Shown here is a 93-nucleotide RNA sequence from Kroppenstedtia pulmonis, a member of the family "Selenocysteine transfer RNA". Its family is annotated with triplet codon-amino acid adaptor activity in the Gene Ontology. Taxonomically the source falls in Kroppenstedtia (Bacteria, Bacillati, Bacilli, Thermoactinomycetaceae). Pairs were carried over by alignment from the consensus structure, which is taken from published work.
RNA sequence: GGGAGCGGAUGGGGUGCUGGUGUCCCCCCCGGCCUUCAAAGCCGAGCGGGAGGCGCGUUGCGUCUCCGGUGGGUUCGAUUCCCACACGUUCCC
Numbered sequence: 001g002g003g004a005g006c007g008g009a010u011g012g013g014g015u016g017c018u019g020g021u022g023u024c025c026c027c028c029c030c031g032g033c034c035u036u037c038a039a040a041g042c043c044g045a046g047c048g049g050g051a052g053g054c055g056c057g058u059u060g061c062g063u064c065u066c067c068g069g070u071g072g073g074u075u076c077g078a079u080u081c082c083c084a085c086a087c088g089u090u091c092c093c
Stems, first nucleotide, its partner, number of pairs: 001093007008085001011027004017022001028046001030044004049067005070084004